[Rfam]
Nucleotides: 082
Base pairs, nucleotide, nucleotide: 001082003079004078011036012035016031017030018029019028020027021026034068039075040074041073044071045070046069047066048065049064
Number, partner (000 for none) and nucleotide at each position: 001082c002000c003079c004078g005000a006000u007000a008000a009000u010000g011036g012035c013000a014000a015000a016031c017030u018029u019028a020027u021026c022000g023000a024000a025000a026021g027020g028019u029018a030017a031016g032000g033000a034068c035012g036011c037000a038000a039075a040074a041073c042000c043000a044071a045070g046069g047066g048065c049064c050000u051000a052000a053000a054000g055000c056000u057000u058000a059000g060000u061000u062000a063000a064049g065048g066047c067000a068034g069046c070045c071044u072000a073041g074040u075039u076000a077000c078004c079003g080000a081000a082001g